Rfam assigns this 297-nucleotide RNA sequence from Fusarium poae to the family "Group I catalytic intron". Lineage of the source: Eukaryota > Pezizomycotina > Hypocreomycetidae > Hypocreales > Fusarium sambucinum species complex.
RNA sequence: CUAUGGUCUUUAAUACAUGGCCAAAACUGUAGUGAACCUAUGGUUAUAAAUCAUCAAAUUGCGGGAACACCCUAAAGAAAUCUUAACCAAGUAAGUAUGGUAACAUAACUUAUGGCACAGGUAAUGACUCGUGGUAUGGUAAAAUCAAGAUUUAUUAUUCAAUGGGCAAUCCGCAGCCAAGUACCAAUUGUAGAGGUAAGCUUUUAUUUGGUAUGCAGUUCAUCGACUAGACGGUGGUUGGUGUUAUUAGUAUUAAUAAUGCUUAAGAUAUAGUCAGACCCUACCCGAAAGGGUACA
Numbered sequence: 001c002u003a004u005g006g007u008c009u010u011u012a013a014u015a016c017a018u019g020g021c022c023a024a025a026a027c028u029g030u031a032g033u034g035a036a037c038c039u040a041u042g043g044u045u046a047u048a049a050a051u052c053a054u055c056a057a058a059u060u061g062c063g064g065g066a067a068c069a070c071c072c073u074a075a076a077g078a079a080a081u082c083u084u085a086a087c088c089a090a091g092u093a094a095g096u097a098u099g100g101u102a103a104c105a106u107a108a109c110u111u112a113u114g115g116c117a118c119a120g121g122u123a124a125u126g127a128c129u130c131g132u133g134g135u136a137u138g139g140u141a142a143a144a145u146c147a148a149g150a151u152u153u154a155u156u157a158u159u160c161a162a163u164g165g166g167c168a169a170u171c172c173g174c175a176g177c178c179a180a181g182u183a184c185c186a187a188u189u190g191u192a193g194a195g196g197u198a199a200g201c202u203u204u205u206a207u208u209u210g211g212u213a214u215g216c217a218g219u220u221c222a223u224c225g226a227c228u229a230g231a232c233g234g235u236g237g238u239u240g241g242u243g244u245u246a247u248u249a250g251u252a253u254u255a256a257u258a259a260u261g262c263u264u265a266a267g268a269u270a271u272a273g274u275c276a277g278a279c280c281c282u283a284c285c286c287g288a289a290a291g292g293g294u295a296c297a
Stems, first nucleotide, its partner, number of pairs: 007023001010020003029038001049239005055233001060175006070166003176219002181214004190207007223276001225275005241262009282295005

A reference for the family is Cech (1990), "Self-splicing of group I introns", Annu Rev Biochem.